[Rfam]
The family of this 158-nucleotide sequence from Glycine soja is "MIR4371 microRNA precursor family". Lineage of the source: Eukaryota > fabids > Phaseoleae > Glycine > Glycine subgen. Soja. The family's consensus secondary structure was predicted with RNAalifold. Gene Ontology terms of the family: RISC complex and miRNA-mediated post-transcriptional gene silencing. A search with the family's covariance model found it, with a score of 132 bits.
RNA sequence: CCGUUAAGUGAUGAUGUGACAGACAUAGUGUCACGUCAUCACGCCUAAUCACUGAGACGUCAUUGUCACAUCAUUGAAGGUGAUGAUGUAGCAAUGAGGUGUUCAUGACACGGUGUGAUGAUGUGAUACUCUGUUUGUCACCUUAUUAUUUAACGGAA
Numbered sequence: 001c002c003g004u005u006a007a008g009u010g011a012u013g014a015u016g017u018g019a020c021a022g023a024c025a026u027a028g029u030g031u032c033a034c035g036u037c038a039u040c041a042c043g044c045c046u047a048a049u050c051a052c053u054g055a056g057a058c059g060u061c062a063u064u065g066u067c068a069c070a071u072c073a074u075u076g077a078a079g080g081u082g083a084u085g086a087u088g089u090a091g092c093a094a095u096g097a098g099g100u101g102u103u104c105a106u107g108a109c110a111c112g113g114u115g116u117g118a119u120g121a122u123g124u125g126a127u128a129c130u131c132u133g134u135u136u137g138u139c140a141c142c143u144u145a146u147u148a149u150u151u152a153a154c155g156g157a158a
Stems, first nucleotide, its partner, number of pairs: 001156014016141010027130019049108003054103002057100002070087005